[Rfam]
Rfam assigns this 128-nucleotide RNA sequence from Desulforamulus reducens to the family "FMN riboswitch aptamer (RFN element)". Taxonomically the source falls in Desulforamulus reducens (Bacteria, Bacillati, Eubacteriales, Peptococcaceae). The base pairs follow the family's consensus structure, which is taken from published work.
RNA sequence: CAAAACCUUCAGGGUUAGGUGAAAUUCCUUACCGGCGGUAUGGCUUCGGCUAAGCCCGCGAGCCCGUAGGGGCAGAUCUGGUGAGAUGCCAGAGCCGACAGUAAAAGUCUGGAUGGAAGAAGGACGUG
Numbered sequence: 001c002a003a004a005a006c007c008u009u010c011a012g013g014g015u016u017a018g019g020u021g022a023a024a025u026u027c028c029u030u031a032c033c034g035g036c037g038g039u040a041u042g043g044c045u046u047c048g049g050c051u052a053a054g055c056c057c058g059c060g061a062g063c064c065c066g067u068a069g070g071g072g073c074a075g076a077u078c079u080g081g082u083g084a085g086a087u088g089c090c091a092g093a094g095c096c097g098a099c100a101g102u103a104a105a106a107g108u109c110u111g112g113a114u115g116g117a118a119g120a121a122g123g124a125c126g127u128g
Base pairs, nucleotide, nucleotide: 006123007122008121009120010119017029018028019027031108032107033097034096035059036058037057038056054095055094062073063072064071077093078092079091080090081089099111100110101109